A member of the RNA family "SAM riboswitch aptamer (S box leader)" from Desulfuromonas acetoxidans, 108 nucleotides long. Pairs were carried over by alignment from the consensus structure, which is taken from published work. The source organism's lineage runs through Bacteria, Thermodesulfobacteriota, Desulfuromonadales, Desulfuromonas and Desulfuromonas acetoxidans. It is one of the family's seed sequences.

[Rfam]
RNA sequence: GUGUUAUCACGAGUGGUGGAGGGAAUGGCCCUUUGAAACCACAGCAACCGGUCCUGACGUUCAGGAUGACAGGUGCUAAUUCCACCCCCGCAAGGGGACAGAUGAGAC
Numbered sequence: 001g002u003g004u005u006a007u008c009a010c011g012a013g014u015g016g017u018g019g020a021g022g023g024a025a026u027g028g029c030c031c032u033u034u035g036a037a038a039c040c041a042c043a044g045c046a047a048c049c050g051g052u053c054c055u056g057a058c059g060u061u062c063a064g065g066a067u068g069a070c071a072g073g074u075g076c077u078a079a080u081u082c083c084a085c086c087c088c089c090g091c092a093a094g095g096g097g098a099c100a101g102a103u104g105a106g107a108c
Stems, first nucleotide, its partner, number of pairs: 001108002004105005013042005021031003026084003043077004048073002051070003081100001086097004